[Rfam]
Nucleotides: 186
Base pairs, nucleotide, nucleotide: 007170008169009168013038014037040165041164042163043162044161049105050104106151107150108149114126115125116124117123129145130144131143132142
Number, partner (000 for none) and nucleotide at each position: 001000g002000a003000g004000g005000u006000a007170g008169c009168u010000a011000c012000a013038c014037c015000a016000a017000c018000a019000a020000a021000a022000g023000g024000c025000a026000g027000u028000u029000g030000g031000g032000g033000g034000c035000a036000g037014g038013g039000a040165c041164g042163g043162g044161g045000g046000a047000c048000c049105c050104a051000g052000a053000u054000c055000c056000g057000g058000u059000c060000c061000a062000c063000c064000g065000g066000c067000g068000g069000u070000c071000a072000c073000g074000u075000c076000g077000c078000u079000u080000c081000g082000g083000c084000g085000g086000c087000g088000c089000g090000u091000a092000c093000c094000g095000c096000c097000c098000g099000g100000a101000c102000c103000u104050u105049g106151g107150g108149g109000u110000g111000a112000a113000g114126u115125c116124g117123c118000c119000a120000g121000c122000g123117g124116c125115g126114a127000c128000c129145g130144g131143g132142c133000a134000a135000c136000c137000u138000u139000c140000c141000c142132g143131c144130c145129c146000g147000a148000a149108c150107c151106c152000g153000a154000c155000a156000g157000c158000u159000a160000a161044c162043c163042u164041c165040g166000c167000a168009g169008g170007c171000g172000u173000g174000c175000c176000g177000g178000a179000g180000g181000g182000a183000a184000u185000u186000c